[Rfam]
RNA sequence: GGCGUCAGCGCGGGAGAGUGCAAUGGGGAAACCCGGCGCCGCCGAAGGAGCAAGCCGCCCCCGGAAUCUCUCAGGCAAAAGGACCGCGCUGGCGUA
Numbered sequence: 001g002g003c004g005u006c007a008g009c010g011c012g013g014g015a016g017a018g019u020g021c022a023a024u025g026g027g028g029a030a031a032c033c034c035g036g037c038g039c040c041g042c043c044g045a046a047g048g049a050g051c052a053a054g055c056c057g058c059c060c061c062c063g064g065a066a067u068c069u070c071u072c073a074g075g076c077a078a079a080a081g082g083a084c085c086g087c088g089c090u091g092g093c094g095u096a
Base pairs, nucleotide, nucleotide: 006091007090008089009088010087011086012085013084020039021038041076042075043074044072045071048070049069050068055063
Rfam assigns this 96-nucleotide RNA from Sandarakinorhabdus glacialis to the family "Glycine riboswitch aptamer". Taxonomically the source falls in Sandarakinorhabdus (Bacteria, Pseudomonadati, Alphaproteobacteria, Sphingosinicellaceae). Pairs were carried over by alignment from the consensus structure.